[Rfam]
RNA: Mu-gpT-DE RNA
RNA sequence: CCCUGACAGUUGCAUCGUGUAACUGACACUAGCCAAGACAGGAGAAACACAUAUG
Numbered sequence: 001c002c003c004u005g006a007c008a009g010u011u012g013c014a015u016c017g018u019g020u021a022a023c024u025g026a027c028a029c030u031a032g033c034c035a036a037g038a039c040a041g042g043a044g045a046a047a048c049a050c051a052u053a054u055g
Base pairs, nucleotide, nucleotide: 002042003041004040005039007025008024009023010022011021